[Rfam]
RNA sequence: GGGGAUGUUCCGGUUUCGACAGGAAUGAUCUACUAAUAUUGGCAGUAGUUUAGCAGACUAUAAUGCUACUAGGUUUGAAGAAACGCAAACAAAAAACAAAAAGAAGACAAAAUUGAAAUGCCAGCUUUUAUGAUGAACAAUCAAUUAGCAGGAUCAAUGUUAGCAGCUUAAUUCCUCGCUGUUAGAGGAUUGCUAGCCGUAAUAGUAGUUAAUUGUAGAUUAUUAACUAUUAUCGUAUCUCAAGUCUUAAUCUAAUAGAAAUUCUAAUUGAUAAUGUUAGAAUUUUGAAAGUCUUAUUAUCUAGUUAUUUAAUUAGUUGUCUAAUCCUAUUAUUAAAUAAUGAAAAAAAGAUGAUUAGACUAAACUGUAGAAGAUAUUAGAAUGUUAUUUGUGGACGCGGGUUCAAUUCCCGCCAUCUCCACCA
Number, nucleotide and partner (000 for none) at each position: 001g420002g419003g418004g417005a416006u415007g414008u000009u000010c000011c000012g000013g000014u000015u000016u000017c000018g000019a000020c393021a392022g000023g390024a389025a388026u387027g386028a385029u384030c000031u382032a000033c380034u379035a378036a377037u376038a375039u374040u373041g000042g000043c367044a366045g365046u364047a000048g000049u000050u072051u071052a070053g069054c000055a067056g066057a000058c000059u000060a000061u000062a000063a000064u000065g000066c056067u055068a000069c053070u052071a051072g050073g000074u000075u000076u000077g000078a000079a000080g000081a000082a000083a000084c000085g000086c000087a000088a000089a000090c000091a000092a000093a000094a000095a000096a000097c000098a000099a000100a000101a000102a000103g000104a000105a000106g000107a000108c000109a000110a000111a000112a000113u000114u000115g000116a000117a000118a000119u000120g000121c000122c000123a000124g000125c000126u000127u000128u000129u000130a000131u000132g000133a000134u000135g000136a000137a000138c000139a000140a000141u000142c000143a000144a000145u000146u000147a000148g000149c000150a000151g000152g000153a000154u000155c000156a000157a000158u000159g000160u185161u184162a183163g182164c181165a180166g179167c178168u000169u000170a000171a000172u000173u000174c000175c000176u000177c000178g167179c166180u165181g164182u163183u162184a161185g160186a000187g000188g000189a000190u000191u000192g000193c000194u000195a000196g000197c000198c000199g000200u000201a000202a000203u000204a000205g000206u229207a228208g227209u226210u225211a224212a223213u222214u000215g000216u254217a253218g252219a251220u250221u249222a213223u212224u211225a210226a209227c208228u207229a206230u000231u000232a000233u000234c000235g000236u000237a000238u000239c000240u000241c000242a000243a000244g000245u000246c000247u000248u000249a221250a220251u219252c218253u217254a216255a000256u000257a000258g286259a285260a284261a283262u282263u281264c280265u279266a278267a000268u000269u000270g301271a300272u299273a298274a297275u000276g000277u000278u266279a265280g264281a263282a262283u261284u260285u259286u258287g000288a000289a000290a000291g000292u000293c000294u000295u000296a000297u274298u273299a272300u271301c270302u000303a000304g341305u340306u339307a338308u337309u336310u335311a334312a333313u332314u329315a328316g327317u000318u000319g360320u359321c358322u357323a000324a000325u353326c000327c316328u315329a314330u000331u000332a313333u312334u311335a310336a309337a308338u307339a306340a305341u304342g000343a000344a000345a000346a000347a000348a000349a000350g000351a000352u000353g325354a000355u000356u000357a322358g321359a320360c319361u000362a000363a000364a046365c045366u044367g043368u000369a000370g000371a000372a000373g040374a039375u038376a037377u036378u035379a034380g033381a000382a031383u000384g029385u028386u027387a026388u025389u024390u023391g000392u021393g020394g000395a000396c000397g413398c412399g411400g410401g409402u000403u000404c000405a000406a000407u000408u000409c401410c400411c399412g398413c397414c007415a006416u005417c004418u003419c002420c001421a000422c000423c000424a000